[Rfam]
RNA sequence: CUAGCACUUUCACAGGUCCUCCCCAGGCAGUGGGGUCAGGAUUUGGUAGCUGGUGCUUAAGGAAAACGCUUGAUUGUGUCUUUGCUUAGGAACUGUGCCAGUGGCAUCUGUCACUCAAUGGGACAGAC
Numbered sequence: 001c002u003a004g005c006a007c008u009u010u011c012a013c014a015g016g017u018c019c020u021c022c023c024c025a026g027g028c029a030g031u032g033g034g035g036u037c038a039g040g041a042u043u044u045g046g047u048a049g050c051u052g053g054u055g056c057u058u059a060a061g062g063a064a065a066a067c068g069c070u071u072g073a074u075u076g077u078g079u080c081u082u083u084g085c086u087u088a089g090g091a092a093c094u095g096u097g098c099c100a101g102u103g104g105c106a107u108c109u110g111u112c113a114c115u116c117a118a119u120g121g122g123a124c125a126g127a128c
Base pairs, nucleotide, nucleotide: 003057004056005055006054007053008052013045014044015043017041018040019039020038021035022034023033024032067122069120070118071117072116073115075113076112078111079110083106084105085104086103087101089099090098